Purine riboswitch aptamer: a 100-nucleotide RNA from Clostridium putrefaciens. A search with the family's covariance model found it, with a score of 80 bits. Gene Ontology term of the family: purine nucleobase biosynthetic process. Riboswitches are metabolite binding domains within certain messenger RNAs that serve as precision sensors for their corresponding targets.

RNA sequence: AAUAAUAAUAUAAUUAAGUUUCGUAUAACCCUAAUGAUAUGGUUUAGGGGUAUCUACCAGGAACCAAUAAUUCCUGAUUACGAAGAAGGUAUACUUUUGU
Dot-bracket structure: ..................(((((((...((((((.........))))))........((((((.......))))))..)))))))...............